[Rfam]
The record is a 93-nucleotide RNA sequence from Muricoccus nepalensis, which matches "Glycine riboswitch aptamer" in Rfam.
Its family is annotated with glycine biosynthetic process in the Gene Ontology.
A search with the family's covariance model found it, with a score of 48 bits.

RNA sequence: CCUCUGGAAAGCCCGUGAUCCCCGCGAUCACGGCACCGACGGAGUAAGGGAGGGACACACCCCAACCGAAUCUCUCAGGUCUCGGGACAGAGG
Numbered sequence: 001c002c003u004c005u006g007g008a009a010a011g012c013c014c015g016u017g018a019u020c021c022c023c024g025c026g027a028u029c030a031c032g033g034c035a036c037c038g039a040c041g042g043a044g045u046a047a048g049g050g051a052g053g054g055a056c057a058c059a060c061c062c063c064a065a066c067c068g069a070a071u072c073u074c075u076c077a078g079g080u081c082u083c084g085g086g087a088c089a090g091a092g093g
Base pairs, nucleotide, nucleotide: 001093002092003091004090005089006088013033014032015031016030017029018028035080036079037078038076039075042074043073044072048067049066